[Rfam]
RNA sequence: ACCUUAUCGAGAGUGGCGGAGGGACAGGCCCAAGGAAGCCCGGCAACCGGAAAAACCGGUGCUAAAUCCUGCAGCGAAGGCUGAAAGAUGAGGG
Numbered sequence: 001a002c003c004u005u006a007u008c009g010a011g012a013g014u015g016g017c018g019g020a021g022g023g024a025c026a027g028g029c030c031c032a033a034g035g036a037a038g039c040c041c042g043g044c045a046a047c048c049g050g051a052a053a054a055a056c057c058g059g060u061g062c063u064a065a066a067u068c069c070u071g072c073a074g075c076g077a078a079g080g081c082u083g084a085a086a087g088a089u090g091a092g093g094g
Stems, first nucleotide, its partner, number of pairs: 002093007013041001015040003021031003025071004042063004047059002067086001072083004

SAM riboswitch aptamer (S box leader): a 94-nucleotide sequence from Guopingia tenuis.
NCBI's taxonomy places the organism under Bacteria, Bacillota, Clostridia, Christensenellaceae, Guopingia.
About the family: The SAM riboswitch is found upstream of a number of genes which code for proteins involved in methionine or cysteine biosynthesis in Gram-positive bacteria.